A member of the RNA family "Small nucleolar RNA SNORA73 family" from Cavia porcellus, 208 nucleotides long. Gene Ontology terms of the family: RNA processing and nucleolus. U17 (SNORA73A and SNORA73B) also known as E1 belongs to the H/ACA class of small nucleolar RNAs (snoRNAs). Vertebrate U17 is intron-encoded and ranges in length from 200-230 nucleotides, longer than most snoRNAs. It is one of the most abundant snoRNAs in human cells and is essential for the cleavage of pre-rRNA within the 5' external transcribed spacer (ETS). This cleavage leads to the formation of 18S rRNA. Regions of the U17 RNA are complementary to rRNA and act as guides for RNA/RNA interactions, although these regions do not seem to be well conserved between organisms. A search with the family's covariance model found it, with a score of 162 bits. Taxonomically the source falls in Cavia (Eukaryota, Metazoa, Euarchontoglires, Rodentia).
RNA sequence: CCAACCUGGGCAAAUUAAUAAAACUUUUAAAAGUGCCAGGAGUUGUCCAGGUGGCAUAGGGGAGCAUAGGACUCUGCCCCGUGAUGUACAGUCCCUUUCUACGACGUUGGAGAAGAAGCUGGGCCUUGUGUCUGCGCCUGCAUAUUCCUACAACUUCUCAGAGUCCUUUGGGCAGUGACUGGGGAGAUAAACCAUGCAGGAAACAAUG
Numbered sequence: 001c002c003a004a005c006c007u008g009g010g011c012a013a014a015u016u017a018a019u020a021a022a023a024c025u026u027u028u029a030a031a032a033g034u035g036c037c038a039g040g041a042g043u044u045g046u047c048c049a050g051g052u053g054g055c056a057u058a059g060g061g062g063a064g065c066a067u068a069g070g071a072c073u074c075u076g077c078c079c080c081g082u083g084a085u086g087u088a089c090a091g092u093c094c095c096u097u098u099c100u101a102c103g104a105c106g107u108u109g110g111a112g113a114a115g116a117a118g119c120u121g122g123g124c125c126u127u128g129u130g131u132c133u134g135c136g137c138c139u140g141c142a143u144a145u146u147c148c149u150a151c152a153a154c155u156u157c158u159c160a161g162a163g164u165c166c167u168u169u170g171g172g173c174a175g176u177g178a179c180u181g182g183g184g185a186g187a188u189a190a191a192c193c194a195u196g197c198a199g200g201a202a203a204c205a206a207u208g
Stems, first nucleotide, its partner, number of pairs: 001110005007104001008048005051102004060095004064089001066087003069082001137200007154186006163173004